[Rfam]
RNA: Bacterial RNase P class A
RNA sequence: GCGGAGGGCCGGAUGGCCGCGGCACUGGCAACAGGGUCGAGGAAAGUCCGGACUCCAAAAAGCAACGGUGCCGGGUAACGCCCGGGCAAAGCAAUUUGACGGAAAGCGCCACAGAAAACAGACCACCUGUCGUGCAGGUCGGGCAACCGAAACCGCCGACGGGCAAGGGUGAAAAGGUGGGGUAAGAGCCCACCGCGCGGCUGGCAACAGCGGCGGCAUGGCAAGCCCCACCGGGAGCAAUGCCAAAUAGGGACCGCGCGUCGCAAGACGGGGCCGCUUUGGCUCAGCAGGUCCGGGUUGGCAGCUAGAGCCUUGCGGGCAACCGCCGGGCAAGAGGAAUGGUCAUCGAACCGGGGGCAACUUCGGGGAACAGAAUCCGGCUUACAGGCCCUCCGCGCAC
Numbered sequence: 001g002c003g004g005a006g007g008g009c010c011g012g013a014u015g016g017c018c019g020c021g022g023c024a025c026u027g028g029c030a031a032c033a034g035g036g037u038c039g040a041g042g043a044a045a046g047u048c049c050g051g052a053c054u055c056c057a058a059a060a061a062g063c064a065a066c067g068g069u070g071c072c073g074g075g076u077a078a079c080g081c082c083c084g085g086g087c088a089a090a091g092c093a094a095u096u097u098g099a100c101g102g103a104a105a106g107c108g109c110c111a112c113a114g115a116a117a118a119c120a121g122a123c124c125a126c127c128u129g130u131c132g133u134g135c136a137g138g139u140c141g142g143g144c145a146a147c148c149g150a151a152a153c154c155g156c157c158g159a160c161g162g163g164c165a166a167g168g169g170u171g172a173a174a175a176g177g178u179g180g181g182g183u184a185a186g187a188g189c190c191c192a193c194c195g196c197g198c199g200g201c202u203g204g205c206a207a208c209a210g211c212g213g214c215g216g217c218a219u220g221g222c223a224a225g226c227c228c229c230a231c232c233g234g235g236a237g238c239a240a241u242g243c244c245a246a247a248u249a250g251g252g253a254c255c256g257c258g259c260g261u262c263g264c265a266a267g268a269c270g271g272g273g274c275c276g277c278u279u280u281g282g283c284u285c286a287g288c289a290g291g292u293c294c295g296g297g298u299u300g301g302c303a304g305c306u307a308g309a310g311c312c313u314u315g316c317g318g319g320c321a322a323c324c325g326c327c328g329g330g331c332a333a334g335a336g337g338a339a340u341g342g343u344c345a346u347c348g349a350a351c352c353g354g355g356g357g358c359a360a361c362u363u364c365g366g367g368g369a370a371c372a373g374a375a376u377c378c379g380g381c382u383u384a385c386a387g388g389c390c391c392u393c394c395g396c397g398c399a400c
Stems, first nucleotide, its partner, number of pairs: 001396010011385001012347007020039004025034003044383003048380005053237004061280002066233005071085005086100001087098004101228002106226002108222003123168002126163007176194006195217001196215003200211004241303004251294005271285005311330003315326004